Notes:
Rfam assigns this 102-nucleotide RNA sequence to the family "Methylobacterium-1 RNA". The family's RNA type in Rfam is small RNA.

Nucleotides: 102
Stems, first nucleotide, its partner, number of pairs: 004031005010024003037054005056093003060089006068083004
Number, partner (000 for none) and nucleotide at each position: 001000c002000a003000a004031g005030u006029u007028g008027g009000a010024a011023u012022g013000g014000u015000u016000c017000u018000a019000a020000a021000a022012u023011a024010u025000u026000c027008c028007c029006a030005a031004c032000a033000g034000g035000a036000c037054g038053a039052g040051g041050g042000a043000g044000a045000a046000a047000u048000a049000a050041c051040c052039c053038u054037c055000a056093a057092a058091g059000g060089g061088u062087c063086u064085g065084g066000a067000u068083u069082g070081u071080a072000a073000u074000u075000g076000u077000a078000u079000c080071u081070g082069c083068a084065c085064c086063a087062g088061a089060c090000a091058c092057u093056u094000a095000c096000c097000g098000a099000a100000g101000u102000u